[Rfam]
RNA sequence: GACACUGUAUGAAGGUUCUUGCCUAAACUGUUGGACGGCAGGAGCCUGAUGUUUGUGUC
Numbered sequence: 001g002a003c004a005c006u007g008u009a010u011g012a013a014g015g016u017u018c019u020u021g022c023c024u025a026a027a028c029u030g031u032u033g034g035a036c037g038g039c040a041g042g043a044g045c046c047u048g049a050u051g052u053u054u055g056u057g058u059c
Stems, first nucleotide, its partner, number of pairs: 001059005014046010029035001
A member of the RNA family "Selenocysteine insertion sequence 1" from Perca flavescens, 59 nucleotides long.
From the family's description: The incorporation of selenocysteine into a protein sequence is directed by an in-frame UGA codon (usually a stop codon) within the coding region of the mRNA. Selenoprotein mRNAs contain a conserved secondary structure in the 3' UTR that is required for the distinction of UGA stop from UGA selenocysteine.
By type it is a cis-regulatory element.
The organism belongs to Perca, within Eukaryota.